[Rfam]
Shown here is a 112-nucleotide RNA from Nicotiana sylvestris, a member of the family "Small nucleolar RNA Z278". Rfam 15.1 lists 1,130 matches to the family in 214 species. Rfam's curators write: snoZ278 is a C/D box small nucleolar RNA. Its methylation guide targets have not been reported. A search with the family's covariance model found it, with a score of 40 bits. Gene Ontology terms of the family: RNA processing and nucleolus. The family's RNA type in Rfam is C/D-box small nucleolar RNA.
RNA sequence: AUCUGAAAUUGCUGGAUAGUAUUUGAGAUUGUAGUUAGCCUCAAGACCCUGUUUCAGGGAGAACCCCUUGAGGCUACUACAAUAUCAUGAAAUUAUUAAAUUUCUCUGAGAU
Numbered sequence: 001a002u003c004u005g006a007a008a009u010u011g012c013u014g015g016a017u018a019g020u021a022u023u024u025g026a027g028a029u030u031g032u033a034g035u036u037a038g039c040c041u042c043a044a045g046a047c048c049c050u051g052u053u054u055c056a057g058g059g060a061g062a063a064c065c066c067c068u069u070g071a072g073g074c075u076a077c078u079a080c081a082a083u084a085u086c087a088u089g090a091a092a093u094u095a096u097u098a099a100a101u102u103u104c105u106c107u108g109a110g111a112u
Stems, first nucleotide, its partner, number of pairs: 001112003047059005